The family of this 80-nucleotide RNA from Myripristis murdjan is "mir-27 microRNA precursor family". Lineage of the source: Eukaryota > Deuterostomia > Neopterygii > Euteleosteomorpha > Myripristis. Pairs were carried over by alignment from the consensus structure, which was predicted with RNAalifold. A reference for the family is Chen et al. (2005), "The developmental miRNA profiles of zebrafish as determined by small RNA cloning", Genes Dev. Gene Ontology terms of the family: RISC complex and miRNA-mediated post-transcriptional gene silencing.
[Rfam]
RNA sequence: UAUAGUGAUGGGACUUAGCCCACAUGUGAGCAGUGUGUAUGUCUCUCUCAUGUUCACAGUGGUUAAGUUUCAUUGCCUGA
Numbered sequence: 001u002a003u004a005g006u007g008a009u010g011g012g013a014c015u016u017a018g019c020c021c022a023c024a025u026g027u028g029a030g031c032a033g034u035g036u037g038u039a040u041g042u043c044u045c046u047c048u049c050a051u052g053u054u055c056a057c058a059g060u061g062g063u064u065a066a067g068u069u070u071c072a073u074u075g076c077c078u079g080a
Stems, first nucleotide, its partner, number of pairs: 011070010026057007